[Rfam]
RNA sequence: UUACAAGAUCAAGGCAAUAGCAAAAGUGCUUAUGGUGCAGCACUGUCAGAUUCCAAUGAAUAUGCGAAUUCUGCU
Numbered sequence: 001u002u003a004c005a006a007g008a009u010c011a012a013g014g015c016a017a018u019a020g021c022a023a024a025a026g027u028g029c030u031u032a033u034g035g036u037g038c039a040g041c042a043c044u045g046u047c048a049g050a051u052u053c054c055a056a057u058g059a060a061u062a063u064g065c066g067a068a069u070u071c072u073g074c075u
Base pairs, nucleotide, nucleotide: 013043014041015040019075020074021073022072024070025069026038027037028036047064048063050061051060052059053058
Dot-bracket structure: ............[[[...((((.(((((.......))).]].]...((.((((....)))).))....)).))))